Source information:
A member of the RNA family "MIR4371 microRNA precursor family" from Cajanus cajan, 157 nucleotides long. The match comes from Rfam's covariance-model search (110 bits).

RNA sequence: UUGUCAAGUGAUGACAUGGCAGAUGGACUGCCACGUCAUCACCCAACAGUGUUUGCCACGUCAUCACCAUGUCCACGUGGCAGUCCCUUGGAUGAUGUGGCAGACAUUGUUGGGUGAUGAUGUGGCAGUCUGUUUGUCAUGUCAUCAUUUAACAGAG
Numbered sequence: 001u002u003g004u005c006a007a008g009u010g011a012u013g014a015c016a017u018g019g020c021a022g023a024u025g026g027a028c029u030g031c032c033a034c035g036u037c038a039u040c041a042c043c044c045a046a047c048a049g050u051g052u053u054u055g056c057c058a059c060g061u062c063a064u065c066a067c068c069a070u071g072u073c074c075a076c077g078u079g080g081c082a083g084u085c086c087c088u089u090g091g092a093u094g095a096u097g098u099g100g101c102a103g104a105c106a107u108u109g110u111u112g113g114g115u116g117a118u119g120a121u122g123u124g125g126c127a128g129u130c131u132g133u134u135u136g137u138c139a140u141g142u143c144a145u146c147a148u149u150u151a152a153c154a155g156a157g
Stems, first nucleotide, its partner, number of pairs: 001155004006150041049107005055101005071093005